[Rfam]
RNA: mir-618 microRNA precursor family
RNA sequence: CUCUUGUUCACAGCCAAACUCUACUUGUCCUUCUGAGUGUAAUUACGUACAUGCAGUAGCUCAGGAGACAAGCAGGUUUACCCUGUGGAUGAGUC
Numbered sequence: 001c002u003c004u005u006g007u008u009c010a011c012a013g014c015c016a017a018a019c020u021c022u023a024c025u026u027g028u029c030c031u032u033c034u035g036a037g038u039g040u041a042a043u044u045a046c047g048u049a050c051a052u053g054c055a056g057u058a059g060c061u062c063a064g065g066a067g068a069c070a071a072g073c074a075g076g077u078u079u080a081c082c083c084u085g086u087g088g089a090u091g092a093g094u095c
Stems, first nucleotide, its partner, number of pairs: 003093011017079002020076003024072006031066008044058003